[Rfam]
RNA sequence: GCGUGUAAAAGGCAAACCAGUUGAAAAACUGGGACGCAAAGCCUCCGGUCUAAGGGUUCGUCUGUACCUAUGAUAGCGGGGAUACCACA
Numbered sequence: 001g002c003g004u005g006u007a008a009a010a011g012g013c014a015a016a017c018c019a020g021u022u023g024a025a026a027a028a029c030u031g032g033g034a035c036g037c038a039a040a041g042c043c044u045c046c047g048g049u050c051u052a053a054g055g056g057u058u059c060g061u062c063u064g065u066a067c068c069u070a071u072g073a074u075a076g077c078g079g080g081g082a083u084a085c086c087a088c089a
Stems, first nucleotide, its partner, number of pairs: 012037002017032006040083001042081002045079003048074003055068003